[Rfam]
RNA: Bacteroides-1 RNA
RNA sequence: AGGCUAAUCUUCCUGAUUUUAUCUUUGGUGUAUGUGAAUAUACUUAGAUAGAUACUUAUGCCUCCCCGGCAUAGACAGGAUAGA
Numbered sequence: 001a002g003g004c005u006a007a008u009c010u011u012c013c014u015g016a017u018u019u020u021a022u023c024u025u026u027g028g029u030g031u032a033u034g035u036g037a038a039u040a041u042a043c044u045u046a047g048a049u050a051g052a053u054a055c056u057u058a059u060g061c062c063u064c065c066c067c068g069g070c071a072u073a074g075a076c077a078g079g080a081u082a083g084a
Base pairs, nucleotide, nucleotide: 019052020051024047025046027044028043030041031040032039033038056074057073058072059071060070061069062068